A member of the RNA family "Metazoan signal recognition particle RNA" from Allacma fusca, 299 nucleotides long. The family's consensus secondary structure is taken from published work. For this family Rfam cites "Structural and energetic analysis of RNA recognition by a universally conserved protein from the signal recognition particle" (Batey et al., J Mol Biol, 2001). Rfam classes the family as a non-coding RNA gene. The family has 91 seed sequences and 383,523 matches in Rfam 15.1.
[Rfam]
RNA sequence: GCUGGGAGUUGUGGCGUGCUCCUGUAAUCCAGUGUCUAGGAGGCUUGAGUGUGUGGAUGGUUUGAGUUGGGGGUAACUGCUGGCGCGGUCGCGGUCGUUGACUGGGCGUCCCAUCUAAGCUUGGUAUCAAUAUGGGUGUGUGGGAGGAGUCCUGCAUGUCCAGGUUGGCUAAGGAAUGGUGCACCGGGCCAGGGGGGAAACCCAGCAGCCAAAAGCCAUCGUGUCGGGCAGUAGGGGGACUGCGCUCGGGAGAUCCGGCGCGUCAGUAGCCUCGACAACAUAACUAGACCGCGCUCUUA
Dot-bracket structure: (((((((((........))))))....(((........))))))..(((((((....(((((...(((((((....((((((((...(((..((((.(...((((((((((..((((.(((((((((((((.(((((((((((((....))))))))))))).)))).(...)..(((((......(((....(((....)))....)))....))))).)))))))))..)))).))...))))))))).)))).)))..))))))))))))))).....)))))...)))))))...